The family of this 86-nucleotide RNA sequence from Capsicum baccatum is "MIR8024 microRNA precursor family". The source organism's lineage runs through Eukaryota, Mesangiospermae, Pentapetalae, Solanales and Capsicum. Gene Ontology terms of the family: RISC complex and miRNA-mediated post-transcriptional gene silencing.

RNA sequence: UUGAAAAUUUAGAAGGCCUUAAUUUGAAAACUUGGAGGUUUUGAUGACUUCAAUUUGUAAACUUAACGGAUUCAAAUAUUUCAUCU
Numbered sequence: 001u002u003g004a005a006a007a008u009u010u011a012g013a014a015g016g017c018c019u020u021a022a023u024u025u026g027a028a029a030a031c032u033u034g035g036a037g038g039u040u041u042u043g044a045u046g047a048c049u050u051c052a053a054u055u056u057g058u059a060a061a062c063u064u065a066a067c068g069g070a071u072u073c074a075a076a077u078a079u080u081u082c083a084u085c086u
Base pairs, nucleotide, nucleotide: 002083003082004081005080006079009076010075012073013072014071017068019066020065021064025059026058028056032053033052034051035050036049037048